Shown here is a 109-nucleotide RNA from Paraburkholderia steynii, a member of the family "Burkholderia sRNA Bp1_Cand684_SIPHT". The organism belongs to Paraburkholderia, within Bacteria. The base pairs follow the family's consensus structure, which was predicted with RNAalifold. The family's RNA type in Rfam is small RNA. The family has 14 seed sequences and 176 matches in Rfam 15.1. The literature on the family includes a 2012 paper in BMC Genomics by Khoo et al., "Computational discovery and RT-PCR validation of novel Burkholderia conserved and Burkholderia pseudomallei unique sRNAs".

RNA sequence: AGAAAAGUAGGUGCCGCCCCGCACAGGGGCGACGCUUGAAGCACGCUAACAAAACGCGGAUGCCAGCACAAACACAAGCAAACCAAACCGCUUGCGCAGCAAAAAAUCA
Numbered sequence: 001a002g003a004a005a006a007g008u009a010g011g012u013g014c015c016g017c018c019c020c021g022c023a024c025a026g027g028g029g030c031g032a033c034g035c036u037u038g039a040a041g042c043a044c045g046c047u048a049a050c051a052a053a054a055c056g057c058g059g060a061u062g063c064c065a066g067c068a069c070a071a072a073c074a075c076a077a078g079c080a081a082a083c084c085a086a087a088c089c090g091c092u093u094g095c096g097c098a099g100c101a102a103a104a105a106a107u108c109a
Stems, first nucleotide, its partner, number of pairs: 011073002015031006058064002093101003